[Rfam]
RNA sequence: AGUUUGUUGUGGUGAUUCCUACAAGGACGGUAUCUGAGUAAGGUGCCUCUUAGAUAUGCUCUCCUUCCUUGACUACAUCUAAAACUGAAAUAUUCUGAAGCAAGCA
Numbered sequence: 001a002g003u004u005u006g007u008u009g010u011g012g013u014g015a016u017u018c019c020u021a022c023a024a025g026g027a028c029g030g031u032a033u034c035u036g037a038g039u040a041a042g043g044u045g046c047c048u049c050u051u052a053g054a055u056a057u058g059c060u061c062u063c064c065u066u067c068c069u070u071g072a073c074u075a076c077a078u079c080u081a082a083a084a085c086u087g088a089a090a091u092a093u094u095c096u097g098a099a100g101c102a103a104g105c106a
Stems, first nucleotide, its partner, number of pairs: 002105006038068001040066004

Annotation
Small nucleolar RNA Z118/Z121/Z120: a 106-nucleotide RNA sequence from Leersia perrieri. A reference for the family is Chen et al. (2003), "The high diversity of snoRNAs in plants: identification and comparative study of 120 snoRNA genes from Oryza sativa", Nucleic Acids Res. It is annotated as a C/D-box small nucleolar RNA.